[Rfam]
RNA: FMN riboswitch aptamer (RFN element)
Organism: Atopobacter sp. AH10
RNA sequence: AUUCGUCUUCAGGGGCGGGGUGUAAUUCCCCACCGGUGGUUAAAGUCCACGAACUCUUUAUAGAGCCGAUUCGGUGAAAGUCCGAAACCGACAGUAUAGUCUGGAUAAAGAAGAUGGGG
Dot-bracket structure: ..((((((((.......(((.......))).[[((((((.....[[))))...((........))....(((((.......)))))]])).(((....]])))......))))))))..
Numbered sequence: 001a002u003u004c005g006u007c008u009u010c011a012g013g014g015g016c017g018g019g020g021u022g023u024a025a026u027u028c029c030c031c032a033c034c035g036g037u038g039g040u041u042a043a044a045g046u047c048c049a050c051g052a053a054c055u056c057u058u059u060a061u062a063g064a065g066c067c068g069a070u071u072c073g074g075u076g077a078a079a080g081u082c083c084g085a086a087a088c089c090g091a092c093a094g095u096a097u098a099g100u101c102u103g104g105a106u107a108a109a110g111a112a113g114a115u116g117g118g119g
Stems, first nucleotide, its partner, number of pairs: 003117008018030003032100002034090002036050004045088002054065002070086005092103003